[Rfam]
Nucleotides: 320
Stems, first nucleotide, its partner, number of pairs: 006041002009038003014032001017030005044058005075136005085120006092113008145308003152301001154299006161293001164291002166288004179218004188209001190207006228251009255284002261278006
Number, partner (000 for none) and nucleotide at each position: 001000g002000a003000c004000u005000u006041a007040a008000a009038a010037g011036u012000a013000u014032a015000u016000u017030c018029u019028a020027u021026c022000u023000a024000c025000g026021g027020a028019u029018a030017g031000u032014u033000c034000a035000u036011a037010c038009u039000c040007u041006u042000u043000c044058u045057a046056g047055a048054c049000c050000u051000u052000g053000c054048g055047u056046c057045u058044a059000c060000u061000c062000a063000a064000c065000u066000c067000a068000a069000c070000u071000a072000a073000a074000c075136g076135a077134a078133a079132u080000u081000u082000u083000c084000a085120u086119c087118u088117u089116u090115u091000g092113g093112c094111g095110u096109u097108u098107g099106g100000g101000u102000u103000u104000u105000c106099c107098u108097a109096a110095a111094u112093g113092c114000c115090a116089a117088a118087g119086g120085g121000u122000g123000c124000u125000u126000g127000c128000c129000a130000a131000u132079a133078u134077u135076u136075c137000g138000g139000u140000u141000a142000g143000g144000c145308u146307g147306c148000c149000c150000c151000a152301u153000u154299u155298u156297g157296c158295u159294u160000a161293a162000a163000a164291g165290u166288a167287g168286u169285g170000u171000g172000c173000c174000u175000c176000g177000u178000a179218c180217a181216c182215u183000c184000c185000c186000u187000g188209c189000c190207g191206u192205a193204g194203u195202g196000u197000u198000c199000c200000g201000u202195c203194a204193c205192u206191a207190c208000a209188g210000a211000u212000c213000a214000c215182a216181g217180u218179g219000u220000g221000c222000c223000u224000g225000g226000a227000c228251c229250c230249u231248c232247u233246a234245c235244u236243g237000u238000u239000c240000c241000g242000u243236c244235a245234g246233u247232g248231g249230a250229g251228g252000u253000g254000u255284g256283u257000g258000g259000a260000u261278a262277c263276a264275g265274u266273g267000u268000u269000c270000c271000g272000u273266c274265g275264c276263u277262g278261u279000u280000g281000a282000a283256a284255c285169c286168a287167c288166u289000a290165a291164c292000a293161u294159a295158a296157g297156c298155a299154a300000u301152g302000g303000c304000u305000u306147g307146c308145a309000g310000u311000c312000a313000g314000u315000a316000c317000a318000c319000a320000c

Description
A member of the RNA family "Alphacoronavirus 5'UTR" from Alphacoronavirus ricketti, 320 nucleotides long. Rfam links the family to the GO term viral RNA genome replication. From the family's description: The first 150 to 200 nucleotides within the 5' UTR of alphacoronaviruses are highly structured and shown to be conserved on the structural level among alphacoronaviruses. The 5' UTR has been predicted to contain 3 conserved stem-loops: SL1, SL2 and SL4. SL1 is important for viral replication, most likely playing a role in the template-switch of viral subgenomic RNA transcription. Mutations of the upper part of SL1 seems to have an higher impact of viral replication level. By type it is a cis-regulatory element. Clan: Coronavirus 5' UTR. The sequence is in the family's curated seed alignment. The pairing is the family consensus, mapped onto this sequence. For this family Rfam cites "Structural and functional conservation of cis-acting RNA elements in coronavirus 5'-terminal genome regions" (Madhugiri et al., Virology, 2018).